[Rfam]
RNA: Bacterial large signal recognition particle RNA
Organism: Koleobacter methoxysyntrophicus
RNA sequence: CCGUACUAGAUGGGGAGGUAGCGGUGCCCUGUAACCCGCAAUCCGCUACAGCGGGGUUGAAUUCCCCGGCAGAGGCCUUUUCUUUUUAGGGUCCGGCCCGUAUAAGUGGUAAGGAAGAUUGGGUCCUGCGCAAUGGAAACUUGUGAACCCCGUCAGGUCCGGGAGGAAGCAGCGGUAAGCAAGACCUUCCAUGUGCCGCAGGGGUGCCUGGUCAGAGCUAACUGUGCGGGUAACGCCUGGGGAGAAAGGUCAAUCCGGGGUGUACGG
Number, nucleotide and partner (000 for none) at each position: 001c267002c266003g265004u264005a263006c262007u000008a000009g058010a057011u056012g030013g029014g028015g027016a000017g025018g000019u023020a000021g000022c000023g019024g000025u017026g000027c015028c014029c013030u012031g000032u000033a000034a000035c055036c054037c053038g052039c051040a000041a000042u000043c000044c000045g000046c000047u000048a000049c000050a000051g039052c038053g037054g036055g035056g011057u010058u009059g000060a000061a000062u000063u000064c260065c259066c258067c257068g256069g255070c000071a000072g000073a000074g251075g250076c249077c248078u247079u000080u000081u245082c244083u243084u242085u241086u240087u239088a238089g237090g236091g000092u000093c000094c235095g234096g000097c000098c229099c228100g227101u226102a225103u224104a000105a000106g222107u221108g219109g218110u217111a000112a000113g000114g000115a000116a000117g213118a212119u211120u210121g209122g208123g207124u206125c202126c201127u200128g199129c198130g197131c193132a192133a000134u191135g190136g189137a188138a187139a000140c183141u182142u181143g180144u179145g000146a000147a000148c000149c000150c175151c174152g173153u172154c000155a000156g000157g000158u167159c166160c165161g000162g000163g000164a000165g160166g159167a158168a000169g000170c000171a000172g153173c152174g151175g150176u000177a000178a000179g144180c143181a142182a141183g140184a000185c000186c000187u138188u137189c136190c135191a134192u132193g131194u000195g000196c000197c130198g129199c128200a127201g126202g125203g000204g000205u000206g124207c123208c122209u121210g120211g119212u118213c117214a000215g000216a000217g110218c109219u108220a000221a107222c106223u000224g103225u102226g101227c100228g099229g098230g000231u000232a000233a000234c095235g094236c090237c089238u088239g087240g086241g085242g084243a083244g082245a081246a000247a078248g077249g076250u075251c074252a000253a000254u000255c069256c068257g067258g066259g065260g064261u000262g006263u005264a004265c003266g002267g001